Shown here is a 75-nucleotide sequence, a member of the family "Small nucleolar RNA U54". For this family Rfam cites "The high diversity of snoRNAs in plants: identification and comparative study of 120 snoRNA genes from Oryza sativa" (Chen et al., Nucleic Acids Res, 2003). Gene Ontology terms of the family: RNA processing and nucleolus. About the family: U54 is a C/D box small nucleolar RNA, which acts as a methylation guide for 18S ribosomal RNA in plants.
RNA sequence: AGCUUAGUGAUUGCUACCACUCACAUUGGUUUUAUACGCUAUUCUGAUUGGAGCUGUUGAAAACUUAUGAGAGCU
Numbered sequence: 001a002g003c004u005u006a007g008u009g010a011u012u013g014c015u016a017c018c019a020c021u022c023a024c025a026u027u028g029g030u031u032u033u034a035u036a037c038g039c040u041a042u043u044c045u046g047a048u049u050g051g052a053g054c055u056g057u058u059g060a061a062a063a064c065u066u067a068u069g070a071g072a073g074c075u
Stems, first nucleotide, its partner, number of pairs: 001075005
Description:
Pairs were carried over by alignment from the consensus structure, which was predicted with PFOLD. Rfam 15.1 lists 614 matches to the family in 206 species.